[Rfam]
RNA: Purine riboswitch aptamer
RNA sequence: AUAUUCGAUACAACAUCAACUUAUAUAAUGCCAAAAUAAGGUUGGCAAGUUUCUACCCAGUACCGUAAAUACUGGACUAUAAGUAAAGAACUAAAAAUG
Numbered sequence: 001a002u003a004u005u006c007g008a009u010a011c012a013a014c015a016u017c018a019a020c021u022u023a024u025a026u027a028a029u030g031c032c033a034a035a036a037u038a039a040g041g042u043u044g045g046c047a048a049g050u051u052u053c054u055a056c057c058c059a060g061u062a063c064c065g066u067a068a069a070u071a072c073u074g075g076a077c078u079a080u081a082a083g084u085a086a087a088g089a090a091c092u093a094a095a096a097a098u099g
Base pairs, nucleotide, nucleotide: 019084020083021082022081023080024079025078029047030046031045032044033043034042057075058074059073060072061071062070
Dot-bracket structure: ..................(((((((...((((((.......)))))).........((((((.......))))))..)))))))...............